[Rfam]
RNA: ZMP/ZTP riboswitch aptamer (pfl RNA motif)
RNA sequence: UGGACCCAUCGCGACUGGCGCAGAGGUGGAUCACCACCGGGGAGCGAUGCAGUAGUUCGACUCGAGGUCGCCCGCCUGGGCCUGGAGU
Numbered sequence: 001u002g003g004a005c006c007c008a009u010c011g012c013g014a015c016u017g018g019c020g021c022a023g024a025g026g027u028g029g030a031u032c033a034c035c036a037c038c039g040g041g042g043a044g045c046g047a048u049g050c051a052g053u054a055g056u057u058c059g060a061c062u063c064g065a066g067g068u069c070g071c072c073c074g075c076c077u078g079g080g081c082c083u084g085g086a087g088u
Stems, first nucleotide, its partner, number of pairs: 003053001007049006015041002017076004026037004065083005
Dot-bracket structure: ..(...((((((..(([[[[.....((((....))))..))..))))))...)...........(((((...]]]]..))))).....